[Rfam]
RNA sequence: UGGCCCGGUCGCGACUGGCGCAGGUGGGUCACCACCAGGGAGCGGCACAGCACAGCAGACUCCGGGUCGUUCGCCUGGGCCGCGGGU
Numbered sequence: 001u002g003g004c005c006c007g008g009u010c011g012c013g014a015c016u017g018g019c020g021c022a023g024g025u026g027g028g029u030c031a032c033c034a035c036c037a038g039g040g041a042g043c044g045g046c047a048c049a050g051c052a053c054a055g056c057a058g059a060c061u062c063c064g065g066g067u068c069g070u071u072c073g074c075c076u077g078g079g080c081c082g083c084g085g086g087u
Stems, first nucleotide, its partner, number of pairs: 003051002008046005015039002017075004024035004065081004
RNA: ZMP/ZTP riboswitch aptamer (pfl RNA motif)
Organism: Actinotalea ferrariae